[Rfam]
RNA sequence: CCCCCAAGGGGAAGCGAAGACCCCGUGGAGCUUUACAGCAGCCUGCCGUUGAGCCACGACUUCGGAUGUAUAGCGUAGGUAGGAGGCGACGAAGUAUUCUCGCCAGGGAAUACGGAGCCGCCAAUGGAACACUACCCUUCUGGAGUUGUGUCCCUAACUCGGAAGAGGACAUCGGUUGGUGGGCUGUUUAGGUGGGGCGCCAUACCCUUGAAAAGAUAUCGAGGGUGCCCGAAGGUUGACUCAGGUGGGUCAGAACUCCACCGUAGAGUGCAAGAGCAAAAGUCAGCCUGAUGUGACCUCGCAUAGCAGGAGGUCACGGGACGAAAGUCGGGUCUAGCGAACCUUUAUAGCUCUUUGGUAGGGCUUAAAGACGCCAGAAAAGCUACCCCGGGGAUAACGGAGUUGUCUCCAGCGAGAGUCCAUAUCGACCUGGAGGUUUGCUACUUCGAUGUCGGCUCUCUCCAUCCUGGCUGUGCAGCAGCAGCCAAGGGUAAGACUGUUCGUCUAUUAAAGGAGAUCAUGAGCUGGGUUUAGACCGUCGUGAGACAGGUCGGUUGCUAUCUAUUGGGGGUGC
Numbered sequence: 001c002c003c004c005c006a007a008g009g010g011g012a013a014g015c016g017a018a019g020a021c022c023c024c025g026u027g028g029a030g031c032u033u034u035a036c037a038g039c040a041g042c043c044u045g046c047c048g049u050u051g052a053g054c055c056a057c058g059a060c061u062u063c064g065g066a067u068g069u070a071u072a073g074c075g076u077a078g079g080u081a082g083g084a085g086g087c088g089a090c091g092a093a094g095u096a097u098u099c100u101c102g103c104c105a106g107g108g109a110a111u112a113c114g115g116a117g118c119c120g121c122c123a124a125u126g127g128a129a130c131a132c133u134a135c136c137c138u139u140c141u142g143g144a145g146u147u148g149u150g151u152c153c154c155u156a157a158c159u160c161g162g163a164a165g166a167g168g169a170c171a172u173c174g175g176u177u178g179g180u181g182g183g184c185u186g187u188u189u190a191g192g193u194g195g196g197g198c199g200c201c202a203u204a205c206c207c208u209u210g211a212a213a214a215g216a217u218a219u220c221g222a223g224g225g226u227g228c229c230c231g232a233a234g235g236u237u238g239a240c241u242c243a244g245g246u247g248g249g250u251c252a253g254a255a256c257u258c259c260a261c262c263g264u265a266g267a268g269u270g271c272a273a274g275a276g277c278a279a280a281a282g283u284c285a286g287c288c289u290g291a292u293g294u295g296a297c298c299u300c301g302c303a304u305a306g307c308a309g310g311a312g313g314u315c316a317c318g319g320g321a322c323g324a325a326a327g328u329c330g331g332g333u334c335u336a337g338c339g340a341a342c343c344u345u346u347a348u349a350g351c352u353c354u355u356u357g358g359u360a361g362g363g364c365u366u367a368a369a370g371a372c373g374c375c376a377g378a379a380a381a382g383c384u385a386c387c388c389c390g391g392g393g394a395u396a397a398c399g400g401a402g403u404u405g406u407c408u409c410c411a412g413c414g415a416g417a418g419u420c421c422a423u424a425u426c427g428a429c430c431u432g433g434a435g436g437u438u439u440g441c442u443a444c445u446u447c448g449a450u451g452u453c454g455g456c457u458c459u460c461u462c463c464a465u466c467c468u469g470g471c472u473g474u475g476c477a478g479c480a481g482c483a484g485c486c487a488a489g490g491g492u493a494a495g496a497c498u499g500u501u502c503g504u505c506u507a508u509u510a511a512a513g514g515a516g517a518u519c520a521u522g523a524g525c526u527g528g529g530u531u532u533a534g535a536c537c538g539u540c541g542u543g544a545g546a547c548a549g550g551u552c553g554g555u556u557g558c559u560a561u562c563u564a565u566u567g568g569g570g571g572u573g574c
Stems, first nucleotide, its partner, number of pairs: 001571007010563003014558002022392004027388002029384005035187004042179002045176004051154001053152001055150012068137001078136005085119003097110005158167003190203001191201003204226006229332002235287006241267002244262006268277002292318009320329001322327001343370005349365005401442003405439001406436007416426002453528001454526004459517005466491002470485005494506004534552004538547003
The family of this 574-nucleotide part of an RNA from a Candidatus Methanophagaceae archaeon is "Archaeal large subunit ribosomal RNA". The match comes from Rfam's covariance-model search (2923 bits). The family's consensus secondary structure is taken from published work. NCBI's taxonomy places the organism under Archaea, Methanobacteriati, Methanomicrobia, Candidatus Methanophagales, Candidatus Methanophagaceae.